The family of this 145-nucleotide RNA sequence from Dipodomys ordii is "Small nucleolar RNA SNORA48". Clan: SNORA48 clan.
[Rfam]
RNA sequence: ACCCCCUGGCAGUGGGCAAAGAGACACUUCGUUGGUGGUGGUGGCUCUUAUAUCAGUCAGGGGCAGAAUAUGUGAUGAUCCUUUGUUCAUCCUAGCUUGAUGCCUGGAUCAGUGGCCAAAGCUGUUUCAUGCCUAGGACACAGAA
Number, nucleotide and partner (000 for none) at each position: 001a000002c000003c063004c062005c061006c060007u059008g058009g000010c000011a000012g000013u055014g054015g053016g000017c000018a000019a049020a048021g047022a000023g042024a000025c040026a039027c038028u037029u000030c000031g000032u000033u000034g000035g000036u000037g028038g027039u026040g025041g000042u023043g000044g000045c000046u000047c021048u020049u019050a000051u000052a000053u015054c014055a013056g000057u000058c008059a007060g006061g005062g004063g003064c000065a000066g000067a000068a000069u000070a000071u000072g000073u000074g000075a000076u000077g000078a000079u000080c000081c000082u000083u000084u140085g139086u138087u137088c136089a000090u000091c000092c000093u000094a000095g000096c000097u000098u000099g133100a000101u131102g000103c000104c000105u129106g128107g127108a000109u000110c124111a123112g000113u121114g000115g000116c000117c000118a000119a000120a000121g113122c000123u111124g110125u000126u000127u107128c106129a105130u000131g101132c000133c099134u000135a000136g088137g087138a086139c085140a084141c000142a000143g000144a000145a000
On this family, see Ofengand and Bakin, J Mol Biol 1997: "Mapping to nucleotide resolution of pseudouridine residues in large subunit ribosomal RNAs from representative eukaryotes, prokaryotes, archaebacteria, mitochondria and chloroplasts". The family's RNA type in Rfam is H/ACA-box small nucleolar RNA. Gene Ontology terms of the family: RNA processing and nucleolus. Pairs were carried over by alignment from the consensus structure, which was predicted with RNAalifold. Taxonomically the source falls in Dipodomys (Eukaryota, Vertebrata, Amniota, Dipodomyinae).